[Rfam]
RNA sequence: AUCACUCUGGGAUCUUGUUAAAAUGUAGAUUCUGAUUCAGUAGGUUUGGAGCGAGGCCUGAGAUUCUGCAUUUCUAACAGGUGCCCAGGAGAGGCUGA
Number, nucleotide and partner (000 for none) at each position: 001a000002u000003c091004a000005c089006u000007c000008u000009g085010g084011g000012a000013u000014c081015u080016u079017g078018u077019u076020a075021a073022a072023a071024u000025g069026u068027a067028g066029a065030u000031u063032c062033u061034g000035a000036u000037u000038c000039a000040g000041u000042a000043g000044g000045u000046u000047u000048g000049g000050a000051g000052c000053g000054a000055g000056g000057c000058c000059u000060g000061a033062g032063a031064u000065u029066c028067u027068g026069c025070a000071u023072u022073u021074c000075u020076a019077a018078c017079a016080g015081g014082u000083g000084c010085c009086c000087a000088g000089g005090a000091g003092a000093g000094g000095c000096u000097g000098a000
RNA: mir-544 microRNA precursor family
Organism: Leptonychotes weddellii